RNA sequence: GGCAGAGUAGGAAGUCAUGUGUUUGCGCCCAACGGGCGCGCAGUGCCGUCGGGACGGGAAGUUGCCCGGCGGACGAAAAACCCUGGUUUGCAGUAUGGCUUUCGCAUUCCGCUCGCC
Numbered sequence: 001g002g003c004a005g006a007g008u009a010g011g012a013a014g015u016c017a018u019g020u021g022u023u024u025g026c027g028c029c030c031a032a033c034g035g036g037c038g039c040g041c042a043g044u045g046c047c048g049u050c051g052g053g054a055c056g057g058g059a060a061g062u063u064g065c066c067c068g069g070c071g072g073a074c075g076a077a078a079a080a081c082c083c084u085g086g087u088u089u090g091c092a093g094u095a096u097g098g099c100u101u102u103c104g105c106a107u108u109c110c111g112c113u114c115g116c117c
Base pairs, nucleotide, nucleotide: 001117002116003115004113005112010103011102012101013100014099015098016097017096018095019094020092021091022090043074044073046072047071048070049069050068051067052066053065057109058108059107061105078089079088080087081086
A member of the RNA family "THF (Tetrahydrofolate) riboswitch aptamer" from Firmicutes bacterium CAG:129, 117 nucleotides long. From the family's description: Tetrahydrofolate (THF) riboswitch was first reported for Ames et al. as an RNA motif in 5' untranslated (5'-UTR)regions of folate transport and biosynthesis genes in Firmicutes genomes.